The family of this 64-nucleotide sequence from Streptomyces sp. ICC1 is "Streptomyces RNA 2736". A search with the family's covariance model found it, with a score of 50 bits. By type it is a small RNA.

RNA sequence: CACCCGGUCCGGGUCCCGUGGGGGGAAUCCGUUCCGGGGCAAGGAAAGCGCCCCGACCUUCGAC
Numbered sequence: 001c002a003c004c005c006g007g008u009c010c011g012g013g014u015c016c017c018g019u020g021g022g023g024g025g026a027a028u029c030c031g032u033u034c035c036g037g038g039g040c041a042a043g044g045a046a047a048g049c050g051c052c053c054c055g056a057c058c059u060u061c062g063a064c
Stems, first nucleotide, its partner, number of pairs: 001062001003038005010031005015025003043052002
The literature on the family includes a 2011 paper in RNA Biol by Vockenhuber et al., "Deep sequencing-based identification of small non-coding RNAs in Streptomyces coelicolor". The source organism's lineage runs through Bacteria, Actinomycetota, Actinomycetes, Kitasatosporales and Streptomyces.